mir-30 microRNA precursor family: a 73-nucleotide sequence from Tychaedon coryphoeus. The family has 175 seed sequences and 3,879 matches in Rfam 15.1. Its family is annotated with RISC complex and gene silencing by miRNA in the Gene Ontology. From the family's description: This family consists of the mammalian microRNA (miRNA) precursor mir-30a.

[Rfam]
RNA sequence: UCUGUUGCUGUAAACAUCCCCGACUGGAAGCUGUAGCAGCUCCAGCUUUCAGUCAGAUGUUUGCUGCACCUGG
Numbered sequence: 001u002c003u004g005u006u007g008c009u010g011u012a013a014a015c016a017u018c019c020c021c022g023a024c025u026g027g028a029a030g031c032u033g034u035a036g037c038a039g040c041u042c043c044a045g046c047u048u049u050c051a052g053u054c055a056g057a058u059g060u061u062u063g064c065u066g067c068a069c070c071u072g073g
Base pairs, nucleotide, nucleotide: 002072004070006068008066010064011063012062013061014060015059016058017057018056023053024052025051026050027049028048029047030046031045032044